RNA sequence: UGAUGAUGGUGAGGGAAAUUUUUGAGCAUACCCCUAAAUAUCUCCCAAGCUUGGUAGAGAUUCUCUCUGUCUUUCUAUCUAAAACUUAAGAUCUCAUGCCUCAAGCG
Numbered sequence: 001u002g003a004u005g006a007u008g009g010u011g012a013g014g015g016a017a018a019u020u021u022u023u024g025a026g027c028a029u030a031c032c033c034c035u036a037a038a039u040a041u042c043u044c045c046c047a048a049g050c051u052u053g054g055u056a057g058a059g060a061u062u063c064u065c066u067c068u069g070u071c072u073u074u075c076u077a078u079c080u081a082a083a084a085c086u087u088a089a090g091a092u093c094u095c096a097u098g099c100c101u102c103a104a105g106c107g
Stems, first nucleotide, its partner, number of pairs: 001107001004104001005102002057074002
This 107-nucleotide RNA from Capsicum annuum belongs to the Rfam family "Plant small nucleolar RNA R71". Rfam 15.1 lists 278,378 matches to the family in 216 species. For this family Rfam cites "Plant snoRNAs: functional evolution and new modes of gene expression" (Brown et al., Trends Plant Sci, 2003). Rfam classes the family as a C/D-box small nucleolar RNA. The organism belongs to Capsicum, within Eukaryota. The base pairs follow the family's consensus structure, which was predicted with PFOLD.